RNA sequence: AUGCACAUGAUGGAAAUUUUAUUCUGGCUGAAUCACUGAUGUGUUCAAAGGAACCACUGAUGCAU
Number, nucleotide and partner (000 for none) at each position: 001a065002u064003g063004c062005a061006c000007a000008u000009g000010a000011u000012g000013g000014a000015a000016a000017u000018u000019u000020u000021a000022u000023u000024c000025u000026g000027g000028c000029u000030g000031a000032a000033u000034c000035a000036c000037u000038g000039a000040u000041g000042u000043g000044u000045u000046c000047a000048a000049a000050g000051g000052a000053a000054c000055c000056a000057c000058u000059g000060a000061u005062g004063c003064a002065u001
RNA: Small nucleolar RNA SNORD42
Organism: Aquarana catesbeiana